RNA sequence: UUUGGCGUUGGGUUUCCGCUUCAUGAUGCCGUUACCCACAGCAUGAAGAAGGUGCGUUUUACCCAGGCCAGUGCCGCCAUA
Numbered sequence: 001u002u003u004g005g006c007g008u009u010g011g012g013u014u015u016c017c018g019c020u021u022c023a024u025g026a027u028g029c030c031g032u033u034a035c036c037c038a039c040a041g042c043a044u045g046a047a048g049a050a051g052g053u054g055c056g057u058u059u060u061a062c063c064c065a066g067g068c069c070a071g072u073g074c075c076g077c078c079a080u081a
Stems, first nucleotide, its partner, number of pairs: 005042002009038005017031002021028001051078004056074002061072002
RNA: antisense RNA of dnaA mRNA